[Rfam]
RNA: Small nucleolar RNA Z221/R21b
RNA sequence: GAGCUGUGAUGAGAAAUUGUCAUGCACCACUCUGACUAUUAUCAGGUUGAUGAUAAUUUUAUGUACCCAUUCAAUUUCUGAGCUC
Numbered sequence: 001g002a003g004c005u006g007u008g009a010u011g012a013g014a015a016a017u018u019g020u021c022a023u024g025c026a027c028c029a030c031u032c033u034g035a036c037u038a039u040u041a042u043c044a045g046g047u048u049g050a051u052g053a054u055a056a057u058u059u060u061a062u063g064u065a066c067c068c069a070u071u072c073a074a075u076u077u078c079u080g081a082g083c084u085c
Base pairs, nucleotide, nucleotide: 001085002084003083004082